[Rfam]
Description
The record is a 316-nucleotide RNA sequence from Acholeplasma laidlawii, which matches "Bacterial RNase P class B" in Rfam. Rfam's curators put it in the seed alignment. Rfam classes the family as a ribozyme. Pairs were carried over by alignment from the consensus structure, which is taken from published work.
RNA sequence: GAGGAAAGUCCGGGCUAGCACACACCUUAUGGGUGUGUAGUGUUUGUGCUAAGGGAAAUCAUAACCUUAGGUAUGUUGUAUAAACAUAACGGCAAACUAGUUAUAGCUAAGGUGUUUCACUACGUUAUAACUUAAAUUAAAGUGCCACAGAGACGAAUCUAUUUAGAAAUAAAUAGAGUGAAACGCGGUAAACCCCUCAAGCUAGCAACCCAAAUUAGGUAGGGGCACAUGAUGUGUAGCAAUACAACAUCAUGCAAGAUUUGAAUCUUGAGAUUAAUAGUCACAAAAGAAGAAAUUCUUUACAGAACGCGGCUUA
Numbered sequence: 001g002a003g004g005a006a007a008g009u010c011c012g013g014g015c016u017a018g019c020a021c022a023c024a025c026c027u028u029a030u031g032g033g034u035g036u037g038u039a040g041u042g043u044u045u046g047u048g049c050u051a052a053g054g055g056a057a058a059u060c061a062u063a064a065c066c067u068u069a070g071g072u073a074u075g076u077u078g079u080a081u082a083a084a085c086a087u088a089a090c091g092g093c094a095a096a097c098u099a100g101u102u103a104u105a106g107c108u109a110a111g112g113u114g115u116u117u118c119a120c121u122a123c124g125u126u127a128u129a130a131c132u133u134a135a136a137u138u139a140a141a142g143u144g145c146c147a148c149a150g151a152g153a154c155g156a157a158u159c160u161a162u163u164u165a166g167a168a169a170u171a172a173a174u175a176g177a178g179u180g181a182a183a184c185g186c187g188g189u190a191a192a193c194c195c196c197u198c199a200a201g202c203u204a205g206c207a208a209c210c211c212a213a214a215u216u217a218g219g220u221a222g223g224g225g226c227a228c229a230u231g232a233u234g235u236g237u238a239g240c241a242a243u244a245c246a247a248c249a250u251c252a253u254g255c256a257a258g259a260u261u262u263g264a265a266u267c268u269u270g271a272g273a274u275u276a277a278u279a280g281u282c283a284c285a286a287a288a289g290a291a292g293a294a295a296u297u298c299u300u301u302a303c304a305g306a307a308c309g310c311g312g313c314u315u316a
Base pairs, nucleotide, nucleotide: 006315007314008313010312011311012310014308015205016204017203018202019201020038021037022036023035024034025033044200045199046198048196049070050069051068052067053066054065071090072088073087074086075085076084077083091195092194098134099133104127105126106125107124111121112120113119142193143192144189145188146187158177159176160175161174162173163172164171165170209224210223211222228254229253230252231251232250233249234248255270256269257268258267259266260265287300288299289298290297291296

About this RNA: About the family: Ribonuclease P (RNase P) is a ubiquitous endoribonuclease, found in archaea, bacteria and eukarya as well as chloroplasts and mitochondria. Its best characterised activity is the generation of mature 5'-ends of tRNAs by cleaving the 5'-leader elements of precursor-tRNAs. Cellular RNase Ps are ribonucleoproteins. RNA from bacterial RNase Ps retains its catalytic activity in the absence of the protein subunit, i.e. it is a ribozyme. Isolated eukaryotic and archaeal RNase P RNA has not been shown to retain its catalytic function, but is still essential for the catalytic activity of the holoenzyme. Although the archaeal and eukaryotic holoenzyme s have a much greater protein content than the bacterial ones, the RNA cores from all the three lineages are homologous -- helices corresponding to P1, P2, P3, P4, and P10/11 are common to all cellular RNase P RNAs. Yet, there is considerable sequence variation, particularly among the eukaryotic RNAs.